[Rfam]
RNA sequence: CCGGGGUGGGAUGUCCGGCCGGUGACGAUGCCGGAUAAACUGGCUACGGAUCCGAGUCGAGCGCAGCUCUCGGCCGGGUCUGUCAAUGCUCAGACAGCAGCCGCUGCAACCCCAGGGAG
Numbered sequence: 001c002c003g004g005g006g007u008g009g010g011a012u013g014u015c016c017g018g019c020c021g022g023u024g025a026c027g028a029u030g031c032c033g034g035a036u037a038a039a040c041u042g043g044c045u046a047c048g049g050a051u052c053c054g055a056g057u058c059g060a061g062c063g064c065a066g067c068u069c070u071c072g073g074c075c076g077g078g079u080c081u082g083u084c085a086a087u088g089c090u091c092a093g094a095c096a097g098c099a100g101c102c103g104c105u106g107c108a109a110c111c112c113c114a115g116g117g118a119g
Base pairs, nucleotide, nucleotide: 048081049080050079051078052077053076056074058072059071060070061069095106096105097104098103